The family of this 94-nucleotide RNA sequence from Halorubrum kocurii is "eL15-Euryarchaeota ribosomal protein leader". Lineage of the source: Archaea > Methanobacteriati > Halobacteria > Haloferacaceae > Halorubrum kocurii. It is one of the family's seed sequences. Rfam classes the family as a cis-regulatory leader. The base pairs follow the family's consensus structure, which is taken from published work.
RNA sequence: CUCGCCGCCGGGGCCGGGUUCGACGCCGCGAUGGCCGUCGACGUCGCGCCCCGGGACGAGACGACAUGUGGCCGCUUCGCGGCUGAAUCGCAAC
Numbered sequence: 001c002u003c004g005c006c007g008c009c010g011g012g013g014c015c016g017g018g019u020u021c022g023a024c025g026c027c028g029c030g031a032u033g034g035c036c037g038u039c040g041a042c043g044u045c046g047c048g049c050c051c052c053g054g055g056a057c058g059a060g061a062c063g064a065c066a067u068g069u070g071g072c073c074g075c076u077u078c079g080c081g082g083c084u085g086a087a088u089c090g091c092a093a094c
Stems, first nucleotide, its partner, number of pairs: 001060004062090003070084005
Dot-bracket structure: ((((....................................................)))).(((.....(((((.....)))))...)))....